Shown here is a 141-nucleotide RNA from Xenopus tropicalis, a member of the family "Small nucleolar RNA SNORD94".
RNA sequence: UUUGCAAUGAUGAUUGGCGCAGGGGUACCGACCUCAGCUGGAUAAUGGGAGCUGAGUGCAGAGCCGUGUCUGUCUGGUUAUCCGACGUGUGGUUGGUGGCCAGGAGACUCUCUGCAUGAUACAGCCGCCAUACUGAGCAAC
Numbered sequence: 001u002u003u004g005c006a007a008u009g010a011u012g013a014u015u016g017g018c019g020c021a022g023g024g025g026u027a028c029c030g031a032c033c034u035c036a037g038c039u040g041g042a043u044a045a046u047g048g049g050a051g052c053u054g055a056g057u058g059c060a061g062a063g064c065c066g067u068g069u070c071u072g073u074c075u076g077g078u079u080a081u082c083c084g085a086c087g088u089g090u091g092g093u094u095g096g097u098g099g100c101c102a103g104g105a106g107a108c109u110c111u112c113u114g115c116a117u118g119a120u121a122c123a124g125c126c127g128c129c130a131u132a133c134u135g136a137g138c139a140a141c
Base pairs, nucleotide, nucleotide: 002140003139004138005137
Pairs were carried over by alignment from the consensus structure, which was predicted with RNAalifold. The family's RNA type in Rfam is C/D-box small nucleolar RNA.